[Rfam]
RNA sequence: UCUGUAAGUAGAGGUGCGCUGCCUAAGAGUAAGCGAAAGGAGGGGGAGCCCGCCGAUCUUCGCCAAAAGGAGUCAGCGCCGAAGCAGCCAGACCGUCGGGUCCGGCUGCUGGUGCCCUUCCGAACAGGAAUGGCACUGCCAUAGUCCUUAACCAACUAUGGAGCGCUACUGAAGGG
Dot-bracket structure: ......(((((....((((((.((........(((((.(.................).))))).......)).))))))...(((((((.((((....)))).)))))))((((((.((((.....)))).)))))).(((((((.........)))))))....)))))......

Rfam assigns this 176-nucleotide sequence from Laribacter hongkongensis to the family "Lysine riboswitch aptamer". Taxonomically the source falls in Laribacter hongkongensis (Bacteria, Pseudomonadota, Neisseriales, Aquaspirillaceae).